[Rfam]
RNA sequence: CGUCGUUGCCCUCCUAGGGCGUUUCCUCCCUAGACUUGGCCGCCCGUCUCGCGGGCGGCCUUUUUUUCGUCUAUC
Numbered sequence: 001c002g003u004c005g006u007u008g009c010c011c012u013c014c015u016a017g018g019g020c021g022u023u024u025c026c027u028c029c030c031u032a033g034a035c036u037u038g039g040c041c042g043c044c045c046g047u048c049u050c051g052c053g054g055g056c057g058g059c060c061u062u063u064u065u066u067u068c069g070u071c072u073a074u075c
Stems, first nucleotide, its partner, number of pairs: 008020004038060009

Shown here is a 75-nucleotide RNA sequence from Hansschlegelia quercus, a member of the family "Makes More Granules Regulator RNA (mmgR)". On this family, see Corbino et al., Genome Biol 2005: "Evidence for a second class of S-adenosylmethionine riboswitches and other regulatory RNA motifs in alpha-proteobacteria". About the family: SuhB later renamed mmgR (makes more granules regulator) was a putative non-coding RNA found multiple times in the Agrobacterium tumefaciens genome and related alpha-proteobacteria. Other non-coding RNAs uncovered in the same analysis include: speF, ybhL, metA, and serC.Several studies inSinorhizobium meliloti showed that suhB element is indeed a non-coding RNA:firstly it was detected on Northern blot and called Sm8RNA, secondly in an RNAseq study referred to as SmelC689.The mutant phenotype's (strain lacking the small RNA) cytoplasm contains higher content of polyhydroxybutyrate (PBH)storage granules than wild type strain. The base pairs follow the family's consensus structure. The family is grouped with related families in Rfam's "suhB sRNA clan". Rfam links the family to the GO terms protein binding, response to nitrogen compound and DNA-templated transcription, termination. The match comes from Rfam's covariance-model search (73 bits).